Trypanosomatid snoRNA TB10Cs2H1: a 69-nucleotide sequence from Leishmania braziliensis. Pairs were carried over by alignment from the consensus structure, which was predicted with WAR. The source organism's lineage runs through Eukaryota, Kinetoplastea, Metakinetoplastina, Leishmania and Leishmania braziliensis. Its family is annotated with nucleolus and RNA processing in the Gene Ontology. Rfam's curators put it in the seed alignment.
[Rfam]
RNA sequence: CGGUGUUGUCGGUUGGGCGUGACUCCUUGCACCUCGUAGGUACGACCCUAUCUCGCAACCCCCAGAUUC
Numbered sequence: 001c002g003g004u005g006u007u008g009u010c011g012g013u014u015g016g017g018c019g020u021g022a023c024u025c026c027u028u029g030c031a032c033c034u035c036g037u038a039g040g041u042a043c044g045a046c047c048c049u050a051u052c053u054c055g056c057a058a059c060c061c062c063c064a065g066a067u068u069c
Base pairs, nucleotide, nucleotide: 002062003061005059006058007057008056009055015048016047017046